[Rfam]
RNA sequence: GCGGAUAUGGUGCAAUGGCUAGCACAUUAGCCUUCCAAGCUUAUGAUACGGGUUCGAGUCCCGUUGUCCGCU
Numbered sequence: 001g002c003g004g005a006u007a008u009g010g011u012g013c014a015a016u017g018g019c020u021a022g023c024a025c026a027u028u029a030g031c032c033u034u035c036c037a038a039g040c041u042u043a044u045g046a047u048a049c050g051g052g053u054u055c056g057a058g059u060c061c062c063g064u065u066g067u068c069c070g071c072u
Stems, first nucleotide, its partner, number of pairs: 001071007010025004027043001029041003048064005
This 72-nucleotide RNA sequence from Coleofasciculus sp. FACHB-SPT36 belongs to the Rfam family "tRNA". A search with the family's covariance model found it, with a score of 68 bits. The family is grouped with related families in Rfam's "tRNA clan".